[Rfam]
RNA sequence: GUGCAUCAGAAAGGGACGGGGUUUCCAGUUGGAUUGAUCCGUAUAAUUUUGAUGCGAAAGCAUAGAGAGGUGCAGUGUUACUCUUCAUCACGGAUUUUGUGAACGGAGAGUGUCAAGCGCUUCCCACAAUU
Numbered sequence: 001g002u003g004c005a006u007c008a009g010a011a012a013g014g015g016a017c018g019g020g021g022u023u024u025c026c027a028g029u030u031g032g033a034u035u036g037a038u039c040c041g042u043a044u045a046a047u048u049u050u051g052a053u054g055c056g057a058a059a060g061c062a063u064a065g066a067g068a069g070g071u072g073c074a075g076u077g078u079u080a081c082u083c084u085u086c087a088u089c090a091c092g093g094a095u096u097u098u099g100u101g102a103a104c105g106g107a108g109a110g111u112g113u114c115a116a117g118c119g120c121u122u123c124c125c126a127c128a129a130u131u
Base pairs, nucleotide, nucleotide: 003055004054005053006052007051008050009049010048011047016042017041018040019039020038024033025032026031065125067123068122069121070120071119072118073117076115077114079112080111081110082109083108084107085106086105089101090100091099092098
Overview:
Rfam assigns this 131-nucleotide RNA from Caenorhabditis briggsae to the family "Caenorhabditis snoRNA ceN80". Lineage of the source: Eukaryota > Metazoa > Bilateria > Nematoda > Caenorhabditis. Rfam 15.1 lists 20 matches to the family in 11 species. The base pairs follow the family's consensus structure, which was predicted with RNAalifold. Gene Ontology terms of the family: RNA processing and nucleolus.